Shown here is a 77-nucleotide RNA sequence from Daphnia galeata, a member of the family "mir-2 microRNA precursor family". Its family is annotated with miRNA-mediated post-transcriptional gene silencing and RISC complex in the Gene Ontology. NCBI's taxonomy places the organism under Eukaryota, Opisthokonta, Metazoa, Anomopoda, Daphnia.
[Rfam]
RNA sequence: CCGCUCGCAAAGUGGCUGUCAUGUGUCCCAAUAUUAAGUUCAGCGUUUCAUAUCACAGCCAGCUUUGAUGAGCGGGA
Numbered sequence: 001c002c003g004c005u006c007g008c009a010a011a012g013u014g015g016c017u018g019u020c021a022u023g024u025g026u027c028c029c030a031a032u033a034u035u036a037a038g039u040u041c042a043g044c045g046u047u048u049c050a051u052a053u054c055a056c057a058g059c060c061a062g063c064u065u066u067g068a069u070g071a072g073c074g075g076g077a
Stems, first nucleotide, its partner, number of pairs: 005071003008067005013061007021053001024052003
The literature on the family includes a 2001 paper in Cell by Ambros, "microRNAs: tiny regulators with great potential".